[Rfam]
RNA: Small nucleolar RNA SNORA61
Nucleotides: 127
Stems, first nucleotide, its partner, number of pairs: 004058004019047004026039003073115007088105003
Number, partner (000 for none) and nucleotide at each position: 001000a002000c003000a004058c005057u006056c007055c008000g009000g010000u011000u012000c013000c014000c015000u016000u017000u018000c019047c020046c021045a022044u023000g024000c025000a026039a027038u028037c029000u030000c031000a032000a033000c034000a035000c036000u037028g038027g039026u040000c041000u042000u043000g044022a045021u046020g047019g048000u049000u050000g051000u052000a053000a054000a055007g056006g057005a058004g059000g060000g061000a062000g063000c064000g065000u066000g067000c068000u069000g070000a071000a072000g073115c074114u075113g076112g077111c078110c079109u080000c081000a082000c083000a084000g085000c086000u087000u088105u089104g090103u091000a092000g093000u094000c095000u096000g097000g098000u099000a100000u101000a102000a103090g104089c105088a106000c107000g108000u109079g110078g111077g112076c113075c114074a115073g116000a117000u118000u119000c120000a121000a122000a123000c124000a125000g126000g127000g